[Rfam]
RNA sequence: AUGACUAUUACGGGAGAGACUUGUAAUAAGCGCCGAAGGAAUAAGCCAAUAUAAAGCGAAUGUUGGGGAUACUCUCAGGCAAAAGGACCGUAGUACGACU
Numbered sequence: 001a002u003g004a005c006u007a008u009u010a011c012g013g014g015a016g017a018g019a020c021u022u023g024u025a026a027u028a029a030g031c032g033c034c035g036a037a038g039g040a041a042u043a044a045g046c047c048a049a050u051a052u053a054a055a056g057c058g059a060a061u062g063u064u065g066g067g068g069a070u071a072c073u074c075u076c077a078g079g080c081a082a083a084a085g086g087a088c089c090g091u092a093g094u095a096c097g098a099c100u
Base pairs, nucleotide, nucleotide: 006095007094008093009092010091011090012089013088020030021029022028032080033079034078035076036075039074040073046067047066
RNA: Glycine riboswitch aptamer